[Rfam]
RNA sequence: GAUGCAUCGAUCCGGACGAUCAACAAACUUUUUAUUAAUAUAGUUUGUUCGUUCGGCUCGAGUUAUUG
Numbered sequence: 001g002a003u004g005c006a007u008c009g010a011u012c013c014g015g016a017c018g019a020u021c022a023a024c025a026a027a028c029u030u031u032u033u034a035u036u037a038a039u040a041u042a043g044u045u046u047g048u049u050c051g052u053u054c055g056g057c058u059c060g061a062g063u064u065a066u067u068g
Stems, first nucleotide, its partner, number of pairs: 001067003004063002008060003012056002017051002023048004028043002
Description: mir-375 microRNA precursor family: a 68-nucleotide RNA from Cotesia congregata. The organism belongs to Cotesia, within Eukaryota. The match comes from Rfam's covariance-model search (51 bits).